Small nucleolar RNA R30/Z108: a 100-nucleotide RNA sequence from Lathyrus oleraceus. From the family's description: snoR30 is a C/D box small nucleolar RNA which acts as a methylation guide for 18S ribosomal RNA in plants. Its family is annotated with nucleolus and RNA processing in the Gene Ontology.

[Rfam]
Nucleotides: 100
Base pairs, nucleotide, nucleotide: 006100007099008098009097
Number, partner (000 for none) and nucleotide at each position: 001000a002000a003000a004000u005000u006100u007099c008098a009097c010000g011000a012000u013000g014000a015000g016000g017000a018000u019000a020000c021000a022000a023000a024000g025000c026000u027000c028000c029000c030000u031000c032000u033000u034000c035000u036000g037000a038000u039000u040000u041000c042000a043000u044000g045000u046000u047000g048000a049000g050000g051000a052000u053000a054000u055000u056000u057000g058000c059000a060000g061000g062000c063000a064000g065000a066000a067000u068000c069000g070000a071000a072000c073000c074000u075000u076000a077000a078000u079000u080000u081000a082000u083000c084000u085000a086000g087000c088000c089000a090000c091000c092000a093000c094000u095000g096000a097009g098008u099007g100006a
The family's RNA type in Rfam is C/D-box small nucleolar RNA. The organism belongs to Lathyrus, within Eukaryota.